[Rfam]
RNA sequence: GUGCGAAGGUCCCAGCGGAGAGGUGGAGUAAUCUUUCAAUUGAGAUCUCUCCAACAAUUUGAAUUUUUCCUUCGCAAAUUGAUAUCCGAAUCGUAGGAUGCCCUUAAUUCUAUUGUUGGAGUGUCUUGAACCCUCGGAUACAUUCUU
Numbered sequence: 001g002u003g004c005g006a007a008g009g010u011c012c013c014a015g016c017g018g019a020g021a022g023g024u025g026g027a028g029u030a031a032u033c034u035u036u037c038a039a040u041u042g043a044g045a046u047c048u049c050u051c052c053a054a055c056a057a058u059u060u061g062a063a064u065u066u067u068u069c070c071u072u073c074g075c076a077a078a079u080u081g082a083u084a085u086c087c088g089a090a091u092c093g094u095a096g097g098a099u100g101c102c103c104u105u106a107a108u109u110c111u112a113u114u115g116u117u118g119g120a121g122u123g124u125c126u127u128g129a130a131c132c133c134u135c136g137g138a139u140a141c142a143u144u145c146u147u
Stems, first nucleotide, its partner, number of pairs: 003075007011020001013018001026051003033044003085138005097125002100122002103119002106116001